Small nucleolar RNA snoR136: a 139-nucleotide RNA sequence from Protea cynaroides.
Lineage of the source: Eukaryota > Viridiplantae > Streptophyta > Streptophytina > Protea.
For this family Rfam cites "Mining small RNA sequencing data: a new approach to identify small nucleolar RNAs in Arabidopsis" (Chen and Wu, Nucleic Acids Res, 2009).
By type it is an H/ACA-box small nucleolar RNA.
The base pairs follow the family's consensus structure, which was predicted with mfold.
RNA sequence: UUCACUUUUGUGGUAUGGAUAAUAUAAGCUGCUUGAUUUGUUCAUGUUCUAGUGGCAUUGUCAGUGAAGUUAGAUAAAUGUUCCCCUCGCUAUCCAGUGUGAUGACAAUAUUGCAUUUGGACGUUGGGGAACUACACGU
Numbered sequence: 001u002u003c004a005c006u007u008u009u010g011u012g013g014u015a016u017g018g019a020u021a022a023u024a025u026a027a028g029c030u031g032c033u034u035g036a037u038u039u040g041u042u043c044a045u046g047u048u049c050u051a052g053u054g055g056c057a058u059u060g061u062c063a064g065u066g067a068a069g070u071u072a073g074a075u076a077a078a079u080g081u082u083c084c085c086c087u088c089g090c091u092a093u094c095c096a097g098u099g100u101g102a103u104g105a106c107a108a109u110a111u112u113g114c115a116u117u118u119g120g121a122c123g124u125u126g127g128g129g130a131a132c133u134a135c136a137c138g139u
Stems, first nucleotide, its partner, number of pairs: 001069002003066003009060002021058001028056006035049002080132007088123002093121005102111003